RNA: Nuclear RNase P
Organism: Zygotorulaspora mrakii
RNA sequence: AUUGACCUGCAUGCACAACGGAGUUAGCAAAUGUACGCAUCUGAAAGCUCAUACUAAACCAGCAGGUGGGAAAUUCGGUGGAAUUCUACGGAAUGGCUCCAAAUCGGACGUUUGACUGAUUUGGAGUUUUAUUACCGGGGUUUAGGGUCACUUGAUUGUGGCUCUGAGCGUCUUCUCCGUGAGGAGGGAUCUUGGGGAACCGAGACCAUAUGGUUGUUGUCAUCAGAAAUCAACCAGAUUUGUAAUAUCUUCUGGGAUGGGAAAGGCAACAGUAAGUUCCGUUUGACUCGAACUUCAAGGGAAGCUUGAGGUCUGUUGAGUGCAAUCGUAGGACAAGUCGUUACCGAUUUGAACCCGAUACCGAUUACUGGU
Numbered sequence: 001a002u003u004g005a006c007c008u009g010c011a012u013g014c015a016c017a018a019c020g021g022a023g024u025u026a027g028c029a030a031a032u033g034u035a036c037g038c039a040u041c042u043g044a045a046a047g048c049u050c051a052u053a054c055u056a057a058a059c060c061a062g063c064a065g066g067u068g069g070g071a072a073a074u075u076c077g078g079u080g081g082a083a084u085u086c087u088a089c090g091g092a093a094u095g096g097c098u099c100c101a102a103a104u105c106g107g108a109c110g111u112u113u114g115a116c117u118g119a120u121u122u123g124g125a126g127u128u129u130u131a132u133u134a135c136c137g138g139g140g141u142u143u144a145g146g147g148u149c150a151c152u153u154g155a156u157u158g159u160g161g162c163u164c165u166g167a168g169c170g171u172c173u174u175c176u177c178c179g180u181g182a183g184g185a186g187g188g189a190u191c192u193u194g195g196g197g198a199a200c201c202g203a204g205a206c207c208a209u210a211u212g213g214u215u216g217u218u219g220u221c222a223u224c225a226g227a228a229a230u231c232a233a234c235c236a237g238a239u240u241u242g243u244a245a246u247a248u249c250u251u252c253u254g255g256g257a258u259g260g261g262a263a264a265g266g267c268a269a270c271a272g273u274a275a276g277u278u279c280c281g282u283u284u285g286a287c288u289c290g291a292a293c294u295u296c297a298a299g300g301g302a303a304g305c306u307u308g309a310g311g312u313c314u315g316u317u318g319a320g321u322g323c324a325a326u327c328g329u330a331g332g333a334c335a336a337g338u339c340g341u342u343a344c345c346g347a348u349u350u351g352a353a354c355c356c357g358a359u360a361c362c363g364a365u366u367a368c369u370g371g372u
Stems, first nucleotide, its partner, number of pairs: 001329002005067005021050005076363005087274003174187005190205006215271007234255005334351007